[Rfam]
RNA sequence: UGCCCUUCGGCUUUUACCUCCCUGUUGGACUUGGCCGGGCUAUGCCCGGCCUUUUUU
Numbered sequence: 001u002g003c004c005c006u007u008c009g010g011c012u013u014u015u016a017c018c019u020c021c022c023u024g025u026u027g028g029a030c031u032u033g034g035c036c037g038g039g040c041u042a043u044g045c046c047c048g049g050c051c052u053u054u055u056u057u
Base pairs, nucleotide, nucleotide: 002011003010004009033051034050035049036048037047038046039045040044
The family of this 57-nucleotide sequence from Aliiroseovarius crassostreae is "Singlet oxygen resistance RNA X".
Lineage of the source: Bacteria > Pseudomonadati > Alphaproteobacteria > Paracoccaceae > Aliiroseovarius.
SorX (RSs2461)like SorY is a singlet oxygen induced sRNA that counteracts oxidative stress by targeting mRNA for a transporter in Rhodobacter. It also has an impact on resistance against organic hydroperoxides. It targets SD sequence of potA mRNA via an aSD sequence.
By type it is a small RNA.